[Rfam]
RNA: Small nucleolar RNA SNORA28
Nucleotides: 124
Base pairs, nucleotide, nucleotide: 011046012041013040014039015038017036018035019034020033021032022031064117065116067114068113070111074110075109076108080104081103082102087098088095
Number, partner (000 for none) and nucleotide at each position: 001000a002000a003000a004000g005000u006000a007000u008000u009000a010000g011046c012041u013040g014039u015038g016000g017036c018035a019034g020033a021032u022031g023000a024000u025000c026000g027000a028000c029000a030000c031022u032021g033020u034019u035018u036017g037000a038015c039014a040013c041012a042000a043000c044000u045000u046011g047000a048000g049000c050000u051000a052000g053000c054000u055000a056000u057000a058000g059000c060000a061000a062000c063000a064117a065116a066000a067114u068113c069000c070111a071000g072000c073000c074110u075109a076108u077000u078000c079000c080104g081103g082102u083000g084000u085000u086000c087098u088095u089000c090000u091000c092000u093000a094000u095088g096000a097000a098087a099000c100000a101000a102082g103081c104080c105000a106000u107000u108076a109075u110074g111070u112000a113068g114067a115000c116065u117064u118000a119000g120000a121000c122000a123000g124000u